[Rfam]
RNA sequence: GAAUUUCGCCGGGACCGACCUCCUCCCCGGUCCCGACGGAUACGGCCAGUCUUCAUCCUCCUCCCGAUGACUGGCCACCAAAACGGCACCCGCCGGACCUCCUCCCCCGGCGGGUGCUGUUG
Numbered sequence: 001g002a003a004u005u006u007c008g009c010c011g012g013g014a015c016c017g018a019c020c021u022c023c024u025c026c027c028c029g030g031u032c033c034c035g036a037c038g039g040a041u042a043c044g045g046c047c048a049g050u051c052u053u054c055a056u057c058c059u060c061c062u063c064c065c066g067a068u069g070a071c072u073g074g075c076c077a078c079c080a081a082a083a084c085g086g087c088a089c090c091c092g093c094c095g096g097a098c099c100u101c102c103u104c105c106c107c108c109g110g111c112g113g114g115u116g117c118u119g120u121u122g
Stems, first nucleotide, its partner, number of pairs: 006039003010035007044076008053067001086117011
Annotation
Rfam assigns this 122-nucleotide RNA sequence from Kumtagia ephedrae to the family "Alphaproteobacterial ar14". The match comes from Rfam's covariance-model search (94 bits). From the family's description: Smr14C2 was renamed NfeR1 (Nodule Formation Efficiency RNA) highly expressed in salt stress and during the symbiotic interaction on legume roots. It is annotated as a small RNA. The organism belongs to Kumtagia, within Bacteria.